[Rfam]
RNA sequence: CUACUUACCUGGCUGGGGUCAAUGGGUGAUCAAGAAGGUUCAUGGCCUAGGUUGGUGGUCCCAUUGCACUUAGGAGGUGCACCAACCUAAGAUCUCCCCAAGUGGGAGAAUCUACAUCAUGAUUUGUGGCAGGGAGGGCCUGCGUUAAGUGUGAUUCCCUA
Numbered sequence: 001c002u003a004c005u006u007a008c009c010u011g012g013c014u015g016g017g018g019u020c021a022a023u024g025g026g027u028g029a030u031c032a033a034g035a036a037g038g039u040u041c042a043u044g045g046c047c048u049a050g051g052u053u054g055g056u057g058g059u060c061c062c063a064u065u066g067c068a069c070u071u072a073g074g075a076g077g078u079g080c081a082c083c084a085a086c087c088u089a090a091g092a093u094c095u096c097c098c099c100a101a102g103u104g105g106g107a108g109a110a111u112c113u114a115c116a117u118c119a120u121g122a123u124u125u126g127u128g129g130c131a132g133g134g135a136g137g138g139c140c141u142g143c144g145u146u147a148a149g150u151g152u153g154a155u156u157c158c159c160u161a
Stems, first nucleotide, its partner, number of pairs: 012118001014116002016048006023042005049088003053085001055082003058078003061074002090113003093109003097105002134160001136158003141153004